[Rfam]
Rfam assigns this 397-nucleotide RNA from Sediminivirga luteola to the family "Bacterial RNase P class A".
Its family is annotated with tRNA processing, dimeric ribonuclease P complex and ribonuclease P activity in the Gene Ontology.
It is annotated as a ribozyme.
RNA sequence: UGGGUCGUCCAGAUGAUCGCGGCGGGACCGCUCCCGCGCUGCUUCGCGCAGACGAGUGCGGUGCCGACGAGGAACGUCCGGGCUCCGCAGAGCAGGGCGGUGGGUAACGCCCACCCGGGGUAACCCGCGGGACAGUGCCACAGAAAGCAGACCGCCGGCGUCGCGAGGCGCCGGUAAGGGUGAAACGGUGGUGUAAGAGACCACCAGCGCGCCGGGUGACCGGCGCGGCUCGGUAAACCCCGCCCGGAGCAAGAUCAGACAGACAGCGCUAUCAGGGCUGCUCGCCCGAGCUGUCGGGUGGAUCGCUCGACUCUGCCGGCAACGGCAGGGCUAGAUGGAUGAUCAUCGCCUCACCCGCGGGUGAGGAACAGAACCCGGCGUACGGGCGGCCCAUCCA
Numbered sequence: 001u002g003g004g005u006c007g008u009c010c011a012g013a014u015g016a017u018c019g020c021g022g023c024g025g026g027a028c029c030g031c032u033c034c035c036g037c038g039c040u041g042c043u044u045c046g047c048g049c050a051g052a053c054g055a056g057u058g059c060g061g062u063g064c065c066g067a068c069g070a071g072g073a074a075c076g077u078c079c080g081g082g083c084u085c086c087g088c089a090g091a092g093c094a095g096g097g098c099g100g101u102g103g104g105u106a107a108c109g110c111c112c113a114c115c116c117g118g119g120g121u122a123a124c125c126c127g128c129g130g131g132a133c134a135g136u137g138c139c140a141c142a143g144a145a146a147g148c149a150g151a152c153c154g155c156c157g158g159c160g161u162c163g164c165g166a167g168g169c170g171c172c173g174g175u176a177a178g179g180g181u182g183a184a185a186c187g188g189u190g191g192u193g194u195a196a197g198a199g200a201c202c203a204c205c206a207g208c209g210c211g212c213c214g215g216g217u218g219a220c221c222g223g224c225g226c227g228g229c230u231c232g233g234u235a236a237a238c239c240c241c242g243c244c245c246g247g248a249g250c251a252a253g254a255u256c257a258g259a260c261a262g263a264c265a266g267c268g269c270u271a272u273c274a275g276g277g278c279u280g281c282u283c284g285c286c287c288g289a290g291c292u293g294u295c296g297g298g299u300g301g302a303u304c305g306c307u308c309g310a311c312u313c314u315g316c317c318g319g320c321a322a323c324g325g326c327a328g329g330g331c332u333a334g335a336u337g338g339a340u341g342a343u344c345a346u347c348g349c350c351u352c353a354c355c356c357g358c359g360g361g362u363g364a365g366g367a368a369c370a371g372a373a374c375c376c377g378g379c380g381u382a383c384g385g386g387c388g389g390c391c392c393a394u395c396c397a
Stems, first nucleotide, its partner, number of pairs: 001393010012347007020069002023066003027062005074381003078378005083249004090283004095245005100114005115129001116127004130240002135238002137234003152179002154175009187205006207229001208227008253304004262295006275287004311330008